Record summary
This 120-nucleotide RNA from Aureimonas sp. Leaf324 belongs to the Rfam family "Alphaproteobacterial ar14". Lineage of the source: Bacteria > Pseudomonadota > Alphaproteobacteria > Hyphomicrobiales > Aureimonas. The base pairs follow the family's consensus structure. The match comes from Rfam's covariance-model search (72 bits). On this family, see del Val et al., RNA Biol 2012: "A survey of sRNA families in alpha-proteobacteria". Smr14C2 was renamed NfeR1 (Nodule Formation Efficiency RNA) highly expressed in salt stress and during the symbiotic interaction on legume roots. The family has 118 seed sequences and 784 matches in Rfam 15.1.
RNA sequence: GAGUUUCGCACGAGCCUUCUCCUCCCAAUCGGGCUCCUGCGGAUCCGCCCGACGGCAUCCUCCUCCCAGCCGAAGGGUACUCUCCGACGCCUGCCGGUCCUCCCCCGGCAGGCGUUUUUU
Numbered sequence: 001g002a003g004u005u006u007c008g009c010a011c012g013a014g015c016c017u018u019c020u021c022c023u024c025c026c027a028a029u030c031g032g033g034c035u036c037c038u039g040c041g042g043a044u045c046c047g048c049c050c051g052a053c054g055g056c057a058u059c060c061u062c063c064u065c066c067c068a069g070c071c072g073a074a075g076g077g078u079a080c081u082c083u084c085c086g087a088c089g090c091c092u093g094c095c096g097g098u099c100c101u102c103c104c105c106c107g108g109c110a111g112g113c114g115u116u117u118u119u120u
Stems, first nucleotide, its partner, number of pairs: 007041003012036006047078004053072004087115011